[Rfam]
RNA: L31-Firmicutes ribosomal protein leader
RNA sequence: CUAUAGUUCUACAGAGAAUUAUGGCGGAAGGAG
Numbered sequence: 001c002u003a004u005a006g007u008u009c010u011a012c013a014g015a016g017a018a019u020u021a022u023g024g025c026g027g028a029a030g031g032a033g
Stems, first nucleotide, its partner, number of pairs: 001024010